The family of this 359-nucleotide part of an RNA from Halobacterium salinarum is "Archaeal small subunit ribosomal RNA".
Clan: SSU clan.
[Rfam]
RNA sequence: GGCCUAAAGCGUCCGUAGCUGGCUGAACAAGUCCGUUGGGAAAUCUGUCCGCUUAACGGGCAGGCGUCCAGCGGAAACUGUUCAGCUUGGGACCGGAAGACCUGAGGGGUACGUCUGGGGUAGGAGUGAAAUCCUGUAAUCCUGGACGGACCGCCGGUGGCGAAAGCGCCUCAGGAGAACGGAUCCGACAGUGAGGGACGAAAGCUAGGGUCUCGAACCGGAUUAGAUACCCGGGUAGUCCUAGCUGUAAACGAUGUCCGCUAGGUGUGGCGCAGGCUACGAGCCUGCGCUGUGCCGUAGGGAAGCCGAGAAGCGGACCGCCUGGGAAGUACGUCUGCAAGGAUGAAACUUAAAGGAAU
Numbered sequence: 001g002g003c004c005u006a007a008a009g010c011g012u013c014c015g016u017a018g019c020u021g022g023c024u025g026a027a028c029a030a031g032u033c034c035g036u037u038g039g040g041a042a043a044u045c046u047g048u049c050c051g052c053u054u055a056a057c058g059g060g061c062a063g064g065c066g067u068c069c070a071g072c073g074g075a076a077a078c079u080g081u082u083c084a085g086c087u088u089g090g091g092a093c094c095g096g097a098a099g100a101c102c103u104g105a106g107g108g109g110u111a112c113g114u115c116u117g118g119g120g121u122a123g124g125a126g127u128g129a130a131a132u133c134c135u136g137u138a139a140u141c142c143u144g145g146a147c148g149g150a151c152c153g154c155c156g157g158u159g160g161c162g163a164a165a166g167c168g169c170c171u172c173a174g175g176a177g178a179a180c181g182g183a184u185c186c187g188a189c190a191g192u193g194a195g196g197g198a199c200g201a202a203a204g205c206u207a208g209g210g211u212c213u214c215g216a217a218c219c220g221g222a223u224u225a226g227a228u229a230c231c232c233g234g235g236u237a238g239u240c241c242u243a244g245c246u247g248u249a250a251a252c253g254a255u256g257u258c259c260g261c262u263a264g265g266u267g268u269g270g271c272g273c274a275g276g277c278u279a280c281g282a283g284c285c286u287g288c289g290c291u292g293u294g295c296c297g298u299a300g301g302g303a304a305g306c307c308g309a310g311a312a313g314c315g316g317a318c319c320g321c322c323u324g325g326g327a328a329g330u331a332c333g334u335c336u337g338c339a340a341g342g343a344u345g346a347a348a349c350u351u352a353a354a355g356g357a358a359u
Stems, first nucleotide, its partner, number of pairs: 001322003009319001011199004016193001018192003022086007030079002032075009045063007090186003093182003101175007108152002112148008123134003160167002204245006214238001218234004256318006264296014300307002324351003333344004
Record summary
The family has 86 seed sequences and 709 matches in Rfam 15.1. Pairs were carried over by alignment from the consensus structure, which is taken from published work. Rfam's curators put it in the seed alignment. A reference for the family is Yusupov et al. (2001), "Crystal structure of the ribosome at 5.5 A resolution", Science.